[Rfam]
RNA sequence: UGUCUUCUCAAUUCCGUUGUGCAUUGCAGUCGAUUAUUCGAUUCACGAGAGAGAAUCUGCAAGCACCGCGGGAGUGAGGCGACCUC
Numbered sequence: 001u002g003u004c005u006u007c008u009c010a011a012u013u014c015c016g017u018u019g020u021g022c023a024u025u026g027c028a029g030u031c032g033a034u035u036a037u038u039c040g041a042u043u044c045a046c047g048a049g050a051g052a053g054a055a056u057c058u059g060c061a062a063g064c065a066c067c068g069c070g071g072g073a074g075u076g077a078g079g080c081g082a083c084c085u086c
Stems, first nucleotide, its partner, number of pairs: 006079005013072005020065003024062005

The record is an 86-nucleotide sequence from Vespula pensylvanica, which matches "mir-932 microRNA precursor family" in Rfam.
The family's consensus secondary structure was predicted with RNAalifold.
NCBI's taxonomy places the organism under Eukaryota, Metazoa, Aculeata, Vespinae, Vespula.
For this family Rfam cites "Evolutionary flux of canonical microRNAs and mirtrons in Drosophila" (Berezikov et al., Nat Genet, 2010).
Gene Ontology terms of the family: miRNA-mediated post-transcriptional gene silencing and RISC complex.
A search with the family's covariance model found it, with a score of 62 bits.